[Rfam]
RNA sequence: AACAGGCGGUGAUGAUAAUGACAUUUGUCACAAACCCGAAAGCUUCGUGUGGGUUUUCUGUCACUACCUCAUCUGAGCCUGUG
Numbered sequence: 001a002a003c004a005g006g007c008g009g010u011g012a013u014g015a016u017a018a019u020g021a022c023a024u025u026u027g028u029c030a031c032a033a034a035c036c037c038g039a040a041a042g043c044u045u046c047g048u049g050u051g052g053g054u055u056u057u058c059u060g061u062c063a064c065u066a067c068c069u070c071a072u073c074u075g076a077g078c079c080u081g082u083g
Stems, first nucleotide, its partner, number of pairs: 002082006
A member of the RNA family "Small nucleolar RNA SNORD11B" from Scleropages formosus, 83 nucleotides long. Lineage of the source: Eukaryota > Bilateria > Vertebrata > Neopterygii > Scleropages. The family is grouped with related families in Rfam's "SNORD11 clan". On this family, see Yang et al., Nucleic Acids Res 2006: "snoSeeker: an advanced computational package for screening of guide and orphan snoRNA genes in the human genome". The family's RNA type in Rfam is C/D-box small nucleolar RNA. It scores 66 bits against the family's covariance model.